Nucleotides: 448
Stems, first nucleotide, its partner, number of pairs: 001448004009443008018434003035059005044049001060102005076087004103107001115427007122419002126140003143178008151168001155164003181414004186344003191341002193337005200332003206326002211321005218313021345363006364368001374401001384400006
Number, partner (000 for none) and nucleotide at each position: 001448c002447g003446a004445g005000u006000g007000a008000a009443c010442u011441c012440u013439g014438g015437u016436u017000a018434a019433g020432g021000a022000a023000c024000u025000a026000g027000g028000c029000a030000a031000a032000a033000u034000u035059a036058c037057c038056c039055c040000g041000u042000a043000a044049c045000u046000u047000c048000g049044g050000g051000a052000g053000a054000a055039g056038g057037g058036g059035u060102g061101c062100c063099c064098c065000g066000u067000u068000a069000u070000c071000g072000u073000g074000a075000u076087u077086a078085g079084u080000c081000a082000g083000c084079g085078c086077u087076a088000u089000g090000a091000g092000c093000g094000a095000g096000a097000g098064g099063g100062g101061g102060c103107c104000g105000c106000a107103g108000u109000g110000a111000a112000u113000a114000g115427g116426c117425c118424c119423a120422a121421g122419c123418g124000a125000c126140u127139g128138u129000u130000u131000a132000u133000c134000a135000a136000a137000a138128a139127c140126a141000c142000a143178g144177g145176u146175c147174u148173a149172u150171g151168c152000g153000a154000a155164g156163g157162c158000g159000a160000a161000a162157g163156c164155c165000a166000c167000g168151g169000u170000a171150u172149a173148u174147a175146g176145a177144c178143u179000g180000a181414c182413a183412c184411c185000u186344g187343c188342c189000c190000g191341g192340u193337g194336c195335c196334g197333g198000a199000a200332g201331g202330u203000u204000a205000a206326g207325u208000g209000g210000a211321g212320a213319g214318g215317u216000u217000a218313g219312c220311c221310u222309g223308c224307a225306c226305u227304a228303a229302u230301u231300u232299u233298a234297u235296c236295a237294u238293u239000g240000u241000g242000a243000a244000g245000a246000g247000g248000g249000a250000a251000a252000a253000g254000u255000g256000a257000a258000g259000a260000a261000u262000g263000u264000a265000u266000a267000a268000u269000u270000u271000a272000c273000a274000a275000u276000g277000u278000a279000u280000a281000a282000u283000g284000a285000a286000u287000g288000u289000g290000a291000g292000a293238g294237a295236u296235g297234g298233u299232g300231a301230a302229a303228u304227u305226a306225g307224u308223g309222c310221a311220g312219g313218c314000g315000a316000a317215g318214c319213u320212u321211c322000g323000a324000a325207a326206u327000g328000a329000a330202g331201c332200c333197c334196c335195g336194g337193u338000a339000a340192a341191c342188g343187g344186c345363g346362g347361c348360c349359g350358u351000a352000a353000c354000u355000a356000u357000a358350a359349c360348g361347g362346u363345c364368c365000u366000a367000a368364g369000g370000u371000a372000g373000c374401g375000a376000a377000a378000u379000u380000c381000c382000u383000u384400g385399u386398c387397g388396g389395g390000u391000a392000a393000g394000u395389u396388c397387c398386g399385a400384c401374c402000u403000g404000c405000a406000c407000g408000a409000a410000u411184g412183g413182u414181g415000u416000a417000a418123c419122g420000a421121u422120u423119u424118g425117g426116g427115c428000g429000c430000u431000g432020u433019c434018u435000c436016a437015a438014c439013c440012a441011g442010g443009g444000a445004c446003u447002c448001g